The record is an 82-nucleotide RNA from Hucho hucho, which matches "Small nucleolar RNA SNORD35" in Rfam. Taxonomically the source falls in Hucho (Eukaryota, Actinopterygii, Actinopteri, Clupeocephala). The family's RNA type in Rfam is C/D-box small nucleolar RNA.
RNA sequence: UGCAAAUUGUUUAUCUCGCGAUGGUCUUCCAAGCCCAUGUGGCUCUGACGACACUUCCUAAUGGCAACACUGAUGCAGUUGU
Numbered sequence: 001u002g003c004a005a006a007u008u009g010u011u012u013a014u015c016u017c018g019c020g021a022u023g024g025u026c027u028u029c030c031a032a033g034c035c036c037a038u039g040u041g042g043c044u045c046u047g048a049c050g051a052c053a054c055u056u057c058c059u060a061a062u063g064g065c066a067a068c069a070c071u072g073a074u075g076c077a078g079u080u081g082u
Stems, first nucleotide, its partner, number of pairs: 001077004
The family has 8 seed sequences and 1,842 matches in Rfam 15.1. For this family Rfam cites "Intron-encoded, antisense small nucleolar RNAs: the characterization of nine novel species points to their direct role as guides for the 2'-O-ribose methylation of rRNAs" (Nicoloso et al., J Mol Biol, 1996). Its Rfam clan is "SNORD35 clan". U35 is a C/D box snoRNA located in intron 6 of ribosomal protein L13A and intron 3 of ribosomal protein S11 in humans and at homologous positions in mouse and chicken ribosomal protein genes.